[Rfam]
RNA sequence: AUUUAUGAUACCAAAAGACCGAAGACAGCCGGUGGAUGAAAAUCCUUAAAGUUUGCCAGCCGAGGAAUUUAAAUCAUUAAUUUAAUUUAGAUUUAUUGAACCUCUUUGUCUUCAUGGCAAAGAGGUUUUUUUCUCGAAUA
Numbered sequence: 001a002u003u004u005a006u007g008a009u010a011c012c013a014a015a016a017g018a019c020c021g022a023a024g025a026c027a028g029c030c031g032g033u034g035g036a037u038g039a040a041a042a043u044c045c046u047u048a049a050a051g052u053u054u055g056c057c058a059g060c061c062g063a064g065g066a067a068u069u070u071a072a073a074u075c076a077u078u079a080a081u082u083u084a085a086u087u088u089a090g091a092u093u094u095a096u097u098g099a100a101c102c103u104c105u106u107u108g109u110c111u112u113c114a115u116g117g118c119a120a121a122g123a124g125g126u127u128u129u130u131u132u133c134u135c136g137a138a139u140a
Base pairs, nucleotide, nucleotide: 028060029059031057032056033055034045035044036043101125102124103123104122105121106120107119108118109117110116
RNA: Ribosomal protein L10 leader
Organism: Lachnospiraceae bacterium RM5